[Rfam]
RNA sequence: AGAAUACUGAAAUGUUUGUGAAUCUUUGUAAUUCAACCGACAUAACAGACACGGGAGUCUGCGUUUGAUAUAGGAUAACAUGCCACUGUAGAGUGGACUUUAGAAUAUAUUGACAAGAAACCCCCUUAUAAAAAGGCGGGUGUGAAUUAUCUGGGUUUACGGCAUUUUGGUUACAA
Numbered sequence: 001a002g003a004a005u006a007c008u009g010a011a012a013u014g015u016u017u018g019u020g021a022a023u024c025u026u027u028g029u030a031a032u033u034c035a036a037c038c039g040a041c042a043u044a045a046c047a048g049a050c051a052c053g054g055g056a057g058u059c060u061g062c063g064u065u066u067g068a069u070a071u072a073g074g075a076u077a078a079c080a081u082g083c084c085a086c087u088g089u090a091g092a093g094u095g096g097a098c099u100u101u102a103g104a105a106u107a108u109a110u111u112g113a114c115a116a117g118a119a120a121c122c123c124c125c126u127u128a129u130a131a132a133a134a135g136g137c138g139g140g141u142g143u144g145a146a147u148u149a150u151c152u153g154g155g156u157u158u159a160c161g162g163c164a165u166u167u168u169g170g171u172u173a174c175a176a
Stems, first nucleotide, its partner, number of pairs: 006171010017161003029149007036141003053123003058118003064113001066112007078100001083096004
The family of this 176-nucleotide sequence from Tissierella creatinophila is "6S / SsrS RNA". The family's consensus secondary structure is taken from published work. Lineage of the source: Bacteria > Bacillati > Tissierellia > Tissierellales > Tissierella creatinophila.